Rfam assigns this 117-nucleotide RNA from Sporotomaculum syntrophicum to the family "Molybdenum/Tungsten riboswitch aptamer (Moco RNA motif)". The organism belongs to Sporotomaculum, within Bacteria.
[Rfam]
RNA sequence: UGUAUUAAAUAUCUCCGAGUCUGGUAACCUGAACAAAUGGUAUGGUUGCUUGGCCAUUGGGUACACAGGGAAACCGGUGUGCCUCCCAUUGCGGAAAGGGGAAUUUAGCUUUAGCAA
Number, nucleotide and partner (000 for none) at each position: 001u000002g000003u000004a110005u000006u108007a000008a000009a000010u000011a000012u102013c101014u100015c099016c098017g000018a000019g054020u053021c052022u000023g050024g049025u048026a047027a046028c045029c044030u000031g000032a000033a041034c040035a000036a000037a000038u000039g000040g034041u033042a000043u000044g029045g028046u027047u026048g025049c024050u023051u000052g021053g020054c019055c000056a000057u000058u000059g084060g083061g082062u081063a080064c079065a078066c077067a000068g075069g074070g000071a000072a000073a000074c069075c068076g000077g066078u065079g064080u063081g062082c061083c060084u059085c094086c093087c000088a000089u000090u000091g000092c000093g086094g085095a000096a000097a000098g016099g015100g014101g013102a012103a000104u000105u000106u000107a000108g006109c000110u004111u000112u000113a000114g000115c000116a000117a000
Background
Pairs were carried over by alignment from the consensus structure, which is taken from published work.